[Rfam]
RNA sequence: UACAUAAAUAGAGGUGCAAGUAAAAAGGUAGCUUUUAAGUGCUAAGGAGAAUACAUCCUCCGAUAUUAAAAGCAAAGGGUUUAUUUGCCGAAAGGGUAUAUUUGAUAUUAGGUAUAUCCUUGGGGGUAGAGCAUAAUGGUUCUAUCACUGCCGUGAAUAAUCAUGGAGCGCUAUUUAUGUG
Numbered sequence: 001u002a003c004a005u006a007a008a009u010a011g012a013g014g015u016g017c018a019a020g021u022a023a024a025a026a027g028g029u030a031g032c033u034u035u036u037a038a039g040u041g042c043u044a045a046g047g048a049g050a051a052u053a054c055a056u057c058c059u060c061c062g063a064u065a066u067u068a069a070a071a072g073c074a075a076a077g078g079g080u081u082u083a084u085u086u087g088c089c090g091a092a093a094g095g096g097u098a099u100a101u102u103u104g105a106u107a108u109u110a111g112g113u114a115u116a117u118c119c120u121u122g123g124g125g126g127u128a129g130a131g132c133a134u135a136a137u138g139g140u141u142c143u144a145u146c147a148c149u150g151c152c153g154u155g156a157a158u159a160a161u162c163a164u165g166g167a168g169c170g171c172u173a174u175u176u177a178u179g180u181g
Stems, first nucleotide, its partner, number of pairs: 006176006016088009031073008092121012122149002125146008151166006

Overview
The record is a 181-nucleotide sequence from Clostridium aciditolerans, which matches "Lysine riboswitch aptamer" in Rfam. Rfam describes the family as follows. Riboswitches are metabolite binding domains within certain messenger RNAs that serve as precision sensors for their corresponding targets. Allosteric rearrangement of mRNA structure is mediated by ligand binding, and this results in modulation of gene expression. This family includes riboswitches that sense lysine in a number of genes involved in lysine metabolism, including lysC. It scores 98 bits against the family's covariance model.